[Rfam]
RNA sequence: CCGGCUCCGGUUCACCCACAUCCGGGGGCUCCGCCCCCGGAAGCCCCCGAACGGCGAGGGGUGUGAGACCCGGCGGCC
Numbered sequence: 001c002c003g004g005c006u007c008c009g010g011u012u013c014a015c016c017c018a019c020a021u022c023c024g025g026g027g028g029c030u031c032c033g034c035c036c037c038c039g040g041a042a043g044c045c046c047c048c049g050a051a052c053g054g055c056g057a058g059g060g061g062u063g064u065g066a067g068a069c070c071c072g073g074c075g076g077c078c
Stems, first nucleotide, its partner, number of pairs: 003078003007073004015067001017065007
RNA: L31-Actinobacteria ribosomal protein leader
Organism: Pseudonocardia autotrophica